[Rfam]
RNA: Saccharopolyspora sRNA 350
Organism: Streptomyces scopuliridis
RNA sequence: CUCGCGGUGUACUCCCAGGUGGCCUCCCCGUCCACCAGGGCCUGGUCGCCGAAGUACGCCCCGUCGGCGAGCACUUCGAGCACGGCGUCGUCCCCGUAGGGACCCGAGCCGACCUUCUCGACCCGGCCGUGCGCCAGCAGAAAGACCUCGUCCGCCGCGUCGCCGGAGGCCACCAUGACCUGGCCCGCCGCGAACUCCCGCUGCUCGCAGCGGCGCGCCAGCUCGGACAGCACGCCGUCAUCGCCGUACGCGCGCAGCGCCGGCAGCUCGCCGAGCUCGGCGGGGAUGACCGCGACGCGGUCCCCCGUCUGCACGAACGUCACGCGUCCGUCGCCGACCGCGUAGCUGAGCCUGCGGUUCACCCGGUACGUACCGCCCUGAACCUGCACCCAGGGCAGCAUCCGCAGCAGCCACCGUGAGGUGAUCUCCUGCAUCUGCGGUACCGAUUUGGUGGUGGUCGCCAGGUUCCGGGCGGCGGCCGUUCCCAGACUCUGCUGGGACGGCGGCUG
Numbered sequence: 001c002u003c004g005c006g007g008u009g010u011a012c013u014c015c016c017a018g019g020u021g022g023c024c025u026c027c028c029c030g031u032c033c034a035c036c037a038g039g040g041c042c043u044g045g046u047c048g049c050c051g052a053a054g055u056a057c058g059c060c061c062c063g064u065c066g067g068c069g070a071g072c073a074c075u076u077c078g079a080g081c082a083c084g085g086c087g088u089c090g091u092c093c094c095c096g097u098a099g100g101g102a103c104c105c106g107a108g109c110c111g112a113c114c115u116u117c118u119c120g121a122c123c124c125g126g127c128c129g130u131g132c133g134c135c136a137g138c139a140g141a142a143a144g145a146c147c148u149c150g151u152c153c154g155c156c157g158c159g160u161c162g163c164c165g166g167a168g169g170c171c172a173c174c175a176u177g178a179c180c181u182g183g184c185c186c187g188c189c190g191c192g193a194a195c196u197c198c199c200g201c202u203g204c205u206c207g208c209a210g211c212g213g214c215g216c217g218c219c220a221g222c223u224c225g226g227a228c229a230g231c232a233c234g235c236c237g238u239c240a241u242c243g244c245c246g247u248a249c250g251c252g253c254g255c256a257g258c259g260c261c262g263g264c265a266g267c268u269c270g271c272c273g274a275g276c277u278c279g280g281c282g283g284g285g286a287u288g289a290c291c292g293c294g295a296c297g298c299g300g301u302c303c304c305c306c307g308u309c310u311g312c313a314c315g316a317a318c319g320u321c322a323c324g325c326g327u328c329c330g331u332c333g334c335c336g337a338c339c340g341c342g343u344a345g346c347u348g349a350g351c352c353u354g355c356g357g358u359u360c361a362c363c364c365g366g367u368a369c370g371u372a373c374c375g376c377c378c379u380g381a382a383c384c385u386g387c388a389c390c391c392a393g394g395g396c397a398g399c400a401u402c403c404g405c406a407g408c409a410g411c412c413a414c415c416g417u418g419a420g421g422u423g424a425u426c427u428c429c430u431g432c433a434u435c436u437g438c439g440g441u442a443c444c445g446a447u448u449u450g451g452u453g454g455u456g457g458u459c460g461c462c463a464g465g466u467u468c469c470g471g472g473c474g475g476c477g478g479c480c481g482u483u484c485c486c487a488g489a490c491u492c493u494g495c496u497g498g499g500a501c502g503g504c505g506g507c508u509g
Stems, first nucleotide, its partner, number of pairs: 006390006016380001018328002021325001025322001028319001031316002038310004045305001048302001049300003054233002057230001061226003065111004075107001077106002080103001082097004118221001120219001122217001127212001130209001133205001135203003140197001143196002149192002154189001156187002159184002165174002234296001236294002241289003244285002249282003253279002256277003261270002329342003354376004361371002391431005397425001399423003403418003407415001437476002440473001443470001445468002447465006477508002480502003484499005